[Rfam]
RNA sequence: UUAAACAAGCAGAAGCGCCCGCUUCUCACCUGACUGACAUUUUGUUGGCUGGUUAAUGAAUUGAUCGGCUAUAACUAGGUUGAAUGAACCUUUGAUCGAUGAAGAUGUGGGCCUUAAGCGCUCACAUCUUUUUUUAUUGGA
Numbered sequence: 001u002u003a004a005a006c007a008a009g010c011a012g013a014a015g016c017g018c019c020c021g022c023u024u025c026u027c028a029c030c031u032g033a034c035u036g037a038c039a040u041u042u043u044g045u046u047g048g049c050u051g052g053u054u055a056a057u058g059a060a061u062u063g064a065u066c067g068g069c070u071a072u073a074a075c076u077a078g079g080u081u082g083a084a085u086g087a088a089c090c091u092u093u094g095a096u097c098g099a100u101g102a103a104g105a106u107g108u109g110g111g112c113c114u115u116a117a118g119c120g121c122u123c124a125c126a127u128c129u130u131u132u133u134u135u136a137u138u139g140g141a
Stems, first nucleotide, its partner, number of pairs: 011026006028053003034048005104128009

This 141-nucleotide RNA sequence from Paenibacillus sp. GP183 belongs to the Rfam family "Ribosomal protein L20 leader". This family is a putative r-protein leader autoregulatory structure found in B. subtilis and other low-GC Gram-positive bacteria. For this family Rfam cites "Diverse mechanisms for regulating ribosomal protein synthesis in Escherichia coli" (Zengel and Lindahl, Prog Nucleic Acid Res Mol Biol, 1994).